mir-1468 microRNA precursor family: an 86-nucleotide RNA sequence from Bos taurus.
RNA sequence: GGUGGGUGGUUUCUCCGUUUGCCUGUUUUGCUGAUGUUCAUUUGACUUAUUCUCAGCAAAAUAAGCAAAUGGAAAAUUCAUCCAUC
Numbered sequence: 001g002g003u004g005g006g007u008g009g010u011u012u013c014u015c016c017g018u019u020u021g022c023c024u025g026u027u028u029u030g031c032u033g034a035u036g037u038u039c040a041u042u043u044g045a046c047u048u049a050u051u052c053u054c055a056g057c058a059a060a061a062u063a064a065g066c067a068a069a070u071g072g073a074a075a076a077u078u079c080a081u082c083c084a085u086c
Base pairs, nucleotide, nucleotide: 001086002085003084004083005082006081007080008079009078011076012075014073015072016071017070018069019068020067021066022065024063025062026061027060028059029058030057031056032055033054034053
It is one of the family's seed sequences.
Rfam links the family to the GO terms miRNA-mediated post-transcriptional gene silencing and RISC complex.